[Rfam]
RNA sequence: GGGGGCGUUACGGAUUCGACAGGCAUAGUUGAGCUUGAAUUGCGUUUCGUAGGUUACGGCUACGUUAAAACGUUACAGUUAAAUAUAACUGCUAAAAACGAAAACAAUUCUUUCGCUUUAGCUGCCUAAAAACCAGCUAGCGAAGAUCCUCCCGGCAUCGCCCAUGUGCUCGGGUCAGGGUCCUAAUCGAAGUGGGAUACGCUAAAUUUUUCCGUCUGUAAAAUUUAGAGGAGCUUACCAGACUAGCAAUACAGAAUGCCUGUCACUCGGCACGCUGUAAAGCGAACCUUUAAAUGAGUGUCUAUGAACGUAGAGAUUUAAGUGGCAAUAUGUUUGGACGCGGGUUCGACUCCCGCCGUCUCCAUUU
Numbered sequence: 001g002g003g004g005g006c007g008u009u010a011c012g013g014a015u016u017c018g019a020c021a022g023g024c025a026u027a028g029u030u031g032a033g034c035u036u037g038a039a040u041u042g043c044g045u046u047u048c049g050u051a052g053g054u055u056a057c058g059g060c061u062a063c064g065u066u067a068a069a070a071c072g073u074u075a076c077a078g079u080u081a082a083a084u085a086u087a088a089c090u091g092c093u094a095a096a097a098a099c100g101a102a103a104a105c106a107a108u109u110c111u112u113u114c115g116c117u118u119u120a121g122c123u124g125c126c127u128a129a130a131a132a133c134c135a136g137c138u139a140g141c142g143a144a145g146a147u148c149c150u151c152c153c154g155g156c157a158u159c160g161c162c163c164a165u166g167u168g169c170u171c172g173g174g175u176c177a178g179g180g181u182c183c184u185a186a187u188c189g190a191a192g193u194g195g196g197a198u199a200c201g202c203u204a205a206a207u208u209u210u211u212c213c214g215u216c217u218g219u220a221a222a223a224u225u226u227a228g229a230g231g232a233g234c235u236u237a238c239c240a241g242a243c244u245a246g247c248a249a250u251a252c253a254g255a256a257u258g259c260c261u262g263u264c265a266c267u268c269g270g271c272a273c274g275c276u277g278u279a280a281a282g283c284g285a286a287c288c289u290u291u292a293a294a295u296g297a298g299u300g301u302c303u304a305u306g307a308a309c310g311u312a313g314a315g316a317u318u319u320a321a322g323u324g325g326c327a328a329u330a331u332g333u334u335u336g337g338a339c340g341c342g343g344g345u346u347c348g349a350c351u352c353c354c355g356c357c358g359u360c361u362c363c364a365u366u367u
Stems, first nucleotide, its partner, number of pairs: 001363007020336008033323009043310005048064005053076002056073003118140007145182006151174004155169004161196005202228009214243005246283002250279005258271003262302001264300001267297002340356005
Shown here is a 367-nucleotide sequence from Enterococcus faecalis, a member of the family "transfer-messenger RNA".